[Rfam]
RNA sequence: UCGGGAGUGAGGAAAAAAGCUAACGGGUUGGAAACAAGGACACAACCCCGUGAGUUUUCGAAG
Numbered sequence: 001u002c003g004g005g006a007g008u009g010a011g012g013a014a015a016a017a018a019g020c021u022a023a024c025g026g027g028u029u030g031g032a033a034a035c036a037a038g039g040a041c042a043c044a045a046c047c048c049c050g051u052g053a054g055u056u057u058u059c060g061a062a063g
Stems, first nucleotide, its partner, number of pairs: 016058005023051005028045003
RNA: Cyano-1 RNA